Rfam assigns this 249-nucleotide RNA sequence from Terrapene triunguis to the family "Small nucleolar RNA SNORD17". The snoRNA HBI-43 belongs to the C/D family of snoRNAs, guiding 2'O-ribose methylation at position U3797 of the 28S rRNA. Pseudouridylation in position U3797 is predicted to be guided by the H/ACA snoRNA ACA48.

RNA sequence: GUGAAAUGAUGAUGAAGUUUAUCCAUUCUCUGAGUGCUGCUGCACUGCCCUCCCUGCAGCACCUAGAUGCCUGUUCUAGGGUCUCUGUGCCGUGCAGCCUCCAAAUACCCUCCAGUCUUUCAGUGUUCUACUGGGGGCUGCUGGAAGGUCUGGCGGGCUGCCUGCAGGAGCGGGACAGAGCCAGCAGGGCUGGAGCCCCUUUCCAUGGGGGCUCCAUCUCAACCAAGACGAGUGAUGCUCUCUGAUCAC
Dot-bracket structure: .........((((...(......(((((.((..((...(((((.(((.((.(.((((.(..(.(((...(((.....)))....))).).)..(((((((.......((...(((((.(((((((...))))))))))))...)..).......)))))))..)).)).)..)).))).).)))).(((.((((.(((((......))))).)))).))).))..))..)))))......)...)))).
Numbered sequence: 001g002u003g004a005a006a007u008g009a010u011g012a013u014g015a016a017g018u019u020u021a022u023c024c025a026u027u028c029u030c031u032g033a034g035u036g037c038u039g040c041u042g043c044a045c046u047g048c049c050c051u052c053c054c055u056g057c058a059g060c061a062c063c064u065a066g067a068u069g070c071c072u073g074u075u076c077u078a079g080g081g082u083c084u085c086u087g088u089g090c091c092g093u094g095c096a097g098c099c100u101c102c103a104a105a106u107a108c109c110c111u112c113c114a115g116u117c118u119u120u121c122a123g124u125g126u127u128c129u130a131c132u133g134g135g136g137g138c139u140g141c142u143g144g145a146a147g148g149u150c151u152g153g154c155g156g157g158c159u160g161c162c163u164g165c166a167g168g169a170g171c172g173g174g175a176c177a178g179a180g181c182c183a184g185c186a187g188g189g190c191u192g193g194a195g196c197c198c199c200u201u202u203c204c205a206u207g208g209g210g211g212c213u214c215c216a217u218c219u220c221a222a223c224c225a226a227g228a229c230g231a232g233u234g235a236u237g238c239u240c241u242c243u244g245a246u247c248a249c
Stems, first nucleotide, its partner, number of pairs: 010248004017241001024234005030227002034223002039185004043180001045178003049174002052170001054168002056165002059091001062089001064087003070080003094161007108147001109144001113140005119135007187220003191216004196211005
The literature on the family includes a 2001 paper in EMBO J by Huttenhofer et al., "RNomics: an experimental approach that identifies 201 candidates for novel, small, non-messenger RNAs in mouse". The source organism's lineage runs through Eukaryota, Opisthokonta, Eumetazoa, Bilateria and Terrapene.